[Rfam]
RNA sequence: CGACCGUCAAAGGGAGAGACACGCCUAAUCAGGCGCCGAAGGCGCAACCGUCCCGGAAACUUUCGGGCAAAUGAACCUUGGCGGACUA
Number, nucleotide and partner (000 for none) at each position: 001c000002g000003a000004c000005c083006g082007u081008c080009a079010a000011a078012g077013g076014g000015a000016g000017a000018g000019a000020c033021a000022c000023g030024c000025c000026u000027a000028a000029u000030c023031a000032g000033g020034c000035g068036c067037c066038g064039a063040a000041g000042g062043c000044g060045c000046a000047a000048c056049c055050g000051u000052c000053c000054c000055g049056g048057a000058a000059a000060c044061u000062u042063u039064c038065g000066g037067g036068c035069a000070a000071a000072u000073g000074a000075a000076c013077c012078u011079u009080g008081g007082c006083g005084g000085a000086c000087u000088a000
RNA: Glycine riboswitch aptamer
Organism: Bradyrhizobium sp. LTSP885